[Rfam]
RNA sequence: ACACGUCUUCAGGGCGGGGUGAAAGUCCCCACCGGCGGUAAGUGGCGGCCAUGGCCGCAACGAGCCCGCGAGCGCCUGUCGUGGCCAUUUUCCGGCCGUGGCGGGGUCAGCAGAUCUGGUGCGAUGCCAGGGCCGACGGUCAUAGUCCGGAUGAGAGAAGAUGCGU
Numbered sequence: 001a002c003a004c005g006u007c008u009u010c011a012g013g014g015c016g017g018g019g020u021g022a023a024a025g026u027c028c029c030c031a032c033c034g035g036c037g038g039u040a041a042g043u044g045g046c047g048g049c050c051a052u053g054g055c056c057g058c059a060a061c062g063a064g065c066c067c068g069c070g071a072g073c074g075c076c077u078g079u080c081g082u083g084g085c086c087a088u089u090u091u092c093c094g095g096c097c098g099u100g101g102c103g104g105g106g107u108c109a110g111c112a113g114a115u116c117u118g119g120u121g122c123g124a125u126g127c128c129a130g131g132g133c134c135g136a137c138g139g140u141c142a143u144a145g146u147c148c149g150g151a152u153g154a155g156a157g158a159a160g161a162u163g164c165g166u
Stems, first nucleotide, its partner, number of pairs: 004163007017029003031146002033135002035069004064133002072111002115131005137149003
Source information: FMN riboswitch aptamer (RFN element): a 166-nucleotide RNA from Pandoraea terrae. Taxonomically the source falls in Pandoraea (Bacteria, Pseudomonadati, Pseudomonadota, Burkholderiales). A search with the family's covariance model found it, with a score of 104 bits. Rfam 15.1 lists 6,230 matches to the family in 5,120 species.